[Rfam]
RNA sequence: AACCUGGUUGAUCCUGCCAGUAGUCAUAUGCUUGUCUCAAAGAUUAAGCCAUGCAUGUCUCAGUAUAAGCUUUUACACGGCGAAACUGCGAAUGGCUCAUUAAAGCAGUUAUAAUUUAUUUGAUGGUCACUGCUACAUGGAUAACUGUGGUAAUUCUAGAGCUAAUACAUGCACCAAAACCCAACUUCGCAGAAGGGUUGUAUUUAUUAGAUACAGAACCAACGCAGGCUCCGCCUGGUUGUGGUGAUUCAUGAUAACUCGAUGAAUCGUGUGGCUUGGCCGACGAUGCAUCUUUCAAGUUUCUGACCUAUCAGCUUCCGACGGUAGGGUAUGGGCCUACCGUGGCAAUGACGGGUAACGGAGAAUUAGGGUUUGAUUCCGGAGAGGGAGCCUGAGAAACGGCUACCACAUCUAAGGAAGGCAGCAGGCGCGCAAAUUACCCAAUCCUGACACAGGGAGGUAGUGACAAGAAAUAACAAUACAGGGCAUCCAUGUCUUGUAAUUGGAAUGAGUAGAAUUUAAACCCCUUUAUGAGUAUCAAUUGGAGGGCAAGUCUGGUGCCAGCAGCCGCGGUAAUUCCAGCUCCAAUAGCGUAUAUUA
Numbered sequence: 001a002a003c004c005u006g007g008u009u010g011a012u013c014c015u016g017c018c019a020g021u022a023g024u025c026a027u028a029u030g031c032u033u034g035u036c037u038c039a040a041a042g043a044u045u046a047a048g049c050c051a052u053g054c055a056u057g058u059c060u061c062a063g064u065a066u067a068a069g070c071u072u073u074u075a076c077a078c079g080g081c082g083a084a085a086c087u088g089c090g091a092a093u094g095g096c097u098c099a100u101u102a103a104a105g106c107a108g109u110u111a112u113a114a115u116u117u118a119u120u121u122g123a124u125g126g127u128c129a130c131u132g133c134u135a136c137a138u139g140g141a142u143a144a145c146u147g148u149g150g151u152a153a154u155u156c157u158a159g160a161g162c163u164a165a166u167a168c169a170u171g172c173a174c175c176a177a178a179a180c181c182c183a184a185c186u187u188c189g190c191a192g193a194a195g196g197g198u199u200g201u202a203u204u205u206a207u208u209a210g211a212u213a214c215a216g217a218a219c220c221a222a223c224g225c226a227g228g229c230u231c232c233g234c235c236u237g238g239u240u241g242u243g244g245u246g247a248u249u250c251a252u253g254a255u256a257a258c259u260c261g262a263u264g265a266a267u268c269g270u271g272u273g274g275c276u277u278g279g280c281c282g283a284c285g286a287u288g289c290a291u292c293u294u295u296c297a298a299g300u301u302u303c304u305g306a307c308c309u310a311u312c313a314g315c316u317u318c319c320g321a322c323g324g325u326a327g328g329g330u331a332u333g334g335g336c337c338u339a340c341c342g343u344g345g346c347a348a349u350g351a352c353g354g355g356u357a358a359c360g361g362a363g364a365a366u367u368a369g370g371g372u373u374u375g376a377u378u379c380c381g382g383a384g385a386g387g388g389a390g391c392c393u394g395a396g397a398a399a400c401g402g403c404u405a406c407c408a409c410a411u412c413u414a415a416g417g418a419a420g421g422c423a424g425c426a427g428g429c430g431c432g433c434a435a436a437u438u439a440c441c442c443a444a445u446c447c448u449g450a451c452a453c454a455g456g457g458a459g460g461u462a463g464u465g466a467c468a469a470g471a472a473a474u475a476a477c478a479a480u481a482c483a484g485g486g487c488a489u490c491c492a493u494g495u496c497u498u499g500u501a502a503u504u505g506g507a508a509u510g511a512g513u514a515g516a517a518u519u520u521a522a523a524c525c526c527c528u529u530u531a532u533g534a535g536u537a538u539c540a541a542u543u544g545g546a547g548g549g550c551a552a553g554u555c556u557g558g559u560g561c562c563a564g565c566a567g568c569c570g571c572g573g574u575a576a577u578u579c580c581a582g583c584u585c586c587a588a589u590a591g592c593g594u595a596u597a598u599u600a
Stems, first nucleotide, its partner, number of pairs: 004020005022599003026596007035471003041464001042431001048429003052426003057089002062087003069081002096384003106305003111300002115298002122292003136171004145161002148158003178199005185192002204257006218245004226236003267286004272282004307355003314346003321343008359381004363374004386407002389404003409420001411418002437462001439461003445457005477505003480501009512532002514529001516528001542588006555582004564571002
This 600-nucleotide part of an RNA from Symbiodinium sp. CCMP2456 belongs to the Rfam family "Eukaryotic small subunit ribosomal RNA". The source organism's lineage runs through Eukaryota, Sar, Suessiales, Symbiodiniaceae and Symbiodinium. For this family Rfam cites "The comparative RNA web (CRW) site: an online database of comparative sequence and structure information for ribosomal, intron, and other RNAs" (Cannone et al., BMC Bioinformatics, 2002).